[Rfam]
RNA sequence: GUUCCUUCUGCUAAAGGCGCUACAGAAUAAUUUUCUUCCAAGAAAAUCAAAACCCCGGUAUUUGCCGGGGUUUU
Numbered sequence: 001g002u003u004c005c006u007u008c009u010g011c012u013a014a015a016g017g018c019g020c021u022a023c024a025g026a027a028u029a030a031u032u033u034u035c036u037u038c039c040a041a042g043a044a045a046a047u048c049a050a051a052a053c054c055c056c057g058g059u060a061u062u063u064g065c066c067g068g069g070g071u072u073u074u
Stems, first nucleotide, its partner, number of pairs: 016038002019035001050073010